A member of the RNA family "U7 small nuclear RNA" from Pan troglodytes, 60 nucleotides long. It scores 60 bits against the family's covariance model. The literature on the family includes a 1994 paper in Nucleic Acids Res by Spycher et al., "3' end processing of mouse histone pre-mRNA: evidence for additional base-pairing between U7 snRNA and pre-mRNA". The source organism's lineage runs through Eukaryota, Gnathostomata, Theria, Haplorrhini and Pan. The base pairs follow the family's consensus structure, which was predicted with PFOLD.
RNA sequence: AAGUAUUACAGUUCUUUUAGAAUUUGUCUAGCAGGUUCUCUGUUUUUCCAGAAAACCCUC
Numbered sequence: 001a002a003g004u005a006u007u008a009c010a011g012u013u014c015u016u017u018u019a020g021a022a023u024u025u026g027u028c029u030a031g032c033a034g035g036u037u038c039u040c041u042g043u044u045u046u047u048c049c050a051g052a053a054a055a056c057c058c059u060c
Stems, first nucleotide, its partner, number of pairs: 034057004039052004
Dot-bracket structure: .................................((((.((((......)))).))))...